[Rfam]
Overview:
Shown here is a 79-nucleotide sequence from Ruminiclostridium cellulolyticum, a member of the family "Glycine riboswitch aptamer". The match comes from Rfam's covariance-model search (51 bits). The source organism's lineage runs through Bacteria, Bacillota, Clostridia, Ruminiclostridium and Ruminiclostridium cellulolyticum.
RNA sequence: CUCUGGAGAGACCAAUGACGGCGCCGAAGGGGCAAAGGCUAGUUAAAUUUAGCUUAAUCUCUCAGGCAAAAGGACAGAG
Numbered sequence: 001c002u003c004u005g006g007a008g009a010g011a012c013c014a015a016u017g018a019c020g021g022c023g024c025c026g027a028a029g030g031g032g033c034a035a036a037g038g039c040u041a042g043u044u045a046a047a048u049u050u051a052g053c054u055u056a057a058u059c060u061c062u063c064a065g066g067c068a069a070a071a072g073g074a075c076a077g078a079g
Stems, first nucleotide, its partner, number of pairs: 001079005012021002023067003026063002030061003036054002